[Rfam]
RNA: Small nucleolar RNA Z13/snr52
Organism: Fusarium verticillioides
RNA sequence: UGCUCCCAUAUGAUGAAAUAUUUCGGAUGUAAAACAUUGUCAUUGUCGGAAAGCGCAAAAAAUAAUGUCGAGAUUUCCGUUGCCUUCCUUCUGAUUGGGAUU
Numbered sequence: 001u002g003c004u005c006c007c008a009u010a011u012g013a014u015g016a017a018a019u020a021u022u023u024c025g026g027a028u029g030u031a032a033a034a035c036a037u038u039g040u041c042a043u044u045g046u047c048g049g050a051a052a053g054c055g056c057a058a059a060a061a062a063u064a065a066u067g068u069c070g071a072g073a074u075u076u077c078c079g080u081u082g083c084c085u086u087c088c089u090u091c092u093g094a095u096u097g098g099g100a101u102u
Stems, first nucleotide, its partner, number of pairs: 004100002024079004